Rfam assigns this 119-nucleotide RNA from Aurantimonas coralicida to the family "Alphaproteobacterial ar14". Rfam classes the family as a small RNA. Pairs were carried over by alignment from the consensus structure.
RNA sequence: GAGUUUCGCGUAGGGCCCACCUCCUCCCGGGCCUGAAGCGGAUAUGACCUGCGCAUCCUCCUCCCAGCGCAGGUCCCAAUGCGACACCCGUCGGGUCCUCCCCCCGGCGGGUGUUGUCG
Number, nucleotide and partner (000 for none) at each position: 001g000002a000003g000004u000005u000006u000007c040008g039009c038010g000011u036012a000013g034014g033015g032016c031017c030018c000019a000020c000021c000022u000023c000024c000025u000026c000027c000028c000029g000030g017031g016032c015033c014034u013035g000036a011037a000038g009039c008040g007041g000042a000043u000044a000045u000046g075047a074048c073049c072050u071051g070052c069053g068054c067055a000056u000057c000058c000059u000060c000061c000062u000063c000064c000065c000066a000067g054068c053069g052070c051071a050072g049073g048074u047075c046076c000077c000078a000079a000080u000081g000082c000083g000084a114085c113086a112087c111088c110089c109090g108091u107092c106093g105094g104095g000096u000097c000098c000099u000100c000101c000102c000103c000104c094105c093106g092107g091108c090109g089110g088111g087112u086113g085114u084115u000116g000117u000118c000119g000